This 60-nucleotide RNA sequence from Dulcicalothrix desertica belongs to the Rfam family "Nitrogen stress-induced RNA 1". By type it is a small RNA. It scores 45 bits against the family's covariance model. Taxonomically the source falls in Dulcicalothrix desertica (Bacteria, Bacillati, Cyanobacteriota, Cyanophyceae).

[Rfam]
RNA sequence: UGGUAGAUGCACCUUAAUCUUCAGUCCCCCAAUUGAUUUAAUCAAAUGGGGGUUUUCUCU
Numbered sequence: 001u002g003g004u005a006g007a008u009g010c011a012c013c014u015u016a017a018u019c020u021u022c023a024g025u026c027c028c029c030c031a032a033u034u035g036a037u038u039u040a041a042u043c044a045a046a047u048g049g050g051g052g053u054u055u056u057c058u059c060u
Base pairs, nucleotide, nucleotide: 002013003012004011026052027051028050029049030048031047033045034044035043036042